Rfam assigns this 84-nucleotide RNA from Tenacibaculum soleae to the family "Flavo-1 RNA". A search with the family's covariance model found it, with a score of 48 bits. Rfam 15.1 lists 7,497 matches to the family in 411 species.
[Rfam]
RNA sequence: GUAUAGCCCCGAUUGUAGCGUUUGUUUGAGCUCUUUUUUUGAUUUUUCUUCAAAAAAAAGCGAGUGCGAAAAGCGGGAAAUAGC
Numbered sequence: 001g002u003a004u005a006g007c008c009c010c011g012a013u014u015g016u017a018g019c020g021u022u023u024g025u026u027u028g029a030g031c032u033c034u035u036u037u038u039u040u041g042a043u044u045u046u047u048c049u050u051c052a053a054a055a056a057a058a059a060g061c062g063a064g065u066g067c068g069a070a071a072a073g074c075g076g077g078a079a080a081u082a083g084c
Stems, first nucleotide, its partner, number of pairs: 009076003013072002018067002030061003036056007